The record is a 534-nucleotide part of an RNA from Zootermopsis nevadensis, which matches "Eukaryotic small subunit ribosomal RNA" in Rfam.
Rfam links the family to the GO terms ribosome and structural constituent of ribosome.
On this family, see Yusupov et al., Science 2001: "Crystal structure of the ribosome at 5.5 A resolution".
Taxonomically the source falls in Zootermopsis (Eukaryota, Eumetazoa, Altocrustacea, Polyneoptera).
It scores 1654 bits against the family's covariance model.
[Rfam]
RNA sequence: UCCUUGCUGCGGUUAAAAAGCUCGUAGUUGUACCUGAGCUCGUGGACAUGGUACUCCAAGUGAGUAACUGUGAUCCUGAGCUGUUGUACCGGUUUUCUGCGGUUUGCCUUUACCGGUAGGCCGUGGUGGCUGGUGUGUUUACCUUGAAUAAAUCAAAAUGCUCAAUAUAGGCGUUUCGCCUGAAUGAUAGUGCAUGGAAUAAUGGAAUAAGACUUCGGUUUAUUCUGUUGGUCUUGAAACCGAUGUAAUGGUUAAGAGGGACUGACGGGGGCAUUUGUAUCGAUGCGUGAGAGGUGAAAUUCUUGGACCGCAUCGAGACAAACUACUGCGAAAGCAUUUGCCAAGAAUGUCUUCAUUAAUCAAGAACGAAAGUCAGAGGAUCGAAGGCGAUUAGAUACCGCCCUAGUUCUGACCGUAAACGAUGCCAACUAGCGAUCAGGCGGCGGCUGAAAAACCCUGCCUGGGAGCUUCCCGGAAACGAAAGUCUUCGGGUUCCGGGGGUAGUAUGGUUGCAAAGCUGAAACUUAAAGGAAU
Numbered sequence: 001u002c003c004u005u006g007c008u009g010c011g012g013u014u015a016a017a018a019a020g021c022u023c024g025u026a027g028u029u030g031u032a033c034c035u036g037a038g039c040u041c042g043u044g045g046a047c048a049u050g051g052u053a054c055u056c057c058a059a060g061u062g063a064g065u066a067a068c069u070g071u072g073a074u075c076c077u078g079a080g081c082u083g084u085u086g087u088a089c090c091g092g093u094u095u096u097c098u099g100c101g102g103u104u105u106g107c108c109u110u111u112a113c114c115g116g117u118a119g120g121c122c123g124u125g126g127u128g129g130c131u132g133g134u135g136u137g138u139u140u141a142c143c144u145u146g147a148a149u150a151a152a153u154c155a156a157a158a159u160g161c162u163c164a165a166u167a168u169a170g171g172c173g174u175u176u177c178g179c180c181u182g183a184a185u186g187a188u189a190g191u192g193c194a195u196g197g198a199a200u201a202a203u204g205g206a207a208u209a210a211g212a213c214u215u216c217g218g219u220u221u222a223u224u225c226u227g228u229u230g231g232u233c234u235u236g237a238a239a240c241c242g243a244u245g246u247a248a249u250g251g252u253u254a255a256g257a258g259g260g261a262c263u264g265a266c267g268g269g270g271g272c273a274u275u276u277g278u279a280u281c282g283a284u285g286c287g288u289g290a291g292a293g294g295u296g297a298a299a300u301u302c303u304u305g306g307a308c309c310g311c312a313u314c315g316a317g318a319c320a321a322a323c324u325a326c327u328g329c330g331a332a333a334g335c336a337u338u339u340g341c342c343a344a345g346a347a348u349g350u351c352u353u354c355a356u357u358a359a360u361c362a363a364g365a366a367c368g369a370a371a372g373u374c375a376g377a378g379g380a381u382c383g384a385a386g387g388c389g390a391u392u393a394g395a396u397a398c399c400g401c402c403c404u405a406g407u408u409c410u411g412a413c414c415g416u417a418a419a420c421g422a423u424g425c426c427a428a429c430u431a432g433c434g435a436u437c438a439g440g441c442g443g444c445g446g447c448u449g450a451a452a453a454a455c456c457c458u459g460c461c462u463g464g465g466a467g468c469u470u471c472c473c474g475g476a477a478a479c480g481a482a483a484g485u486c487u488u489c490g491g492g493u494u495c496c497g498g499g500g501g502u503a504g505u506a507u508g509g510u511u512g513c514a515a516a517g518c519u520g521a522a523a524c525u526u527a528a529a530g531g532a533a534u
Base pairs, nucleotide, nucleotide: 010497011496012495018494020367022365023364027360028359029358258354259353260352262349266345270342271341272340273339276320277319280316281315282314283313284312285311286310287309291302292301293300328335329334372413373412374411375410376409377408382406386402387401388400389399424493425492426491428485429484431469432468433467436464437463438462439461440460441459442458443457445456446455473480474479499526500525501524508519509518510517511516